Cyano-1 RNA: a 64-nucleotide RNA sequence. By type it is a small RNA. The family's consensus secondary structure is taken from published work. Rfam's curators put it in the seed alignment.

RNA sequence: AAGUGUGUAGGAGAAGAUGAUUUUUCAGUGGAAACAUGGAAACACUUGAUUACUCAUCUUAAAA
Numbered sequence: 001a002a003g004u005g006u007g008u009a010g011g012a013g014a015a016g017a018u019g020a021u022u023u024u025u026c027a028g029u030g031g032a033a034a035c036a037u038g039g040a041a042a043c044a045c046u047u048g049a050u051u052a053c054u055c056a057u058c059u060u061a062a063a064a
Stems, first nucleotide, its partner, number of pairs: 014060006022052001025049003028045003
Dot-bracket structure: .............((((((..(..((((((............))).)))..)..))))))....